RNA: Small nucleolar RNA Z221/R21b
RNA sequence: GGGCAGUGAUGAAUUAAUUUGAGAAAGUCAUGCACCACUCUGAUAUUUCCGUGCUGAUAAUUCUCUUUACCCAUUUUUUUCCUGAGCCC
Numbered sequence: 001g002g003g004c005a006g007u008g009a010u011g012a013a014u015u016a017a018u019u020u021g022a023g024a025a026a027g028u029c030a031u032g033c034a035c036c037a038c039u040c041u042g043a044u045a046u047u048u049c050c051g052u053g054c055u056g057a058u059a060a061u062u063c064u065c066u067u068u069a070c071c072c073a074u075u076u077u078u079u080u081c082c083u084g085a086g087c088c089c
Base pairs, nucleotide, nucleotide: 001089002088003087004086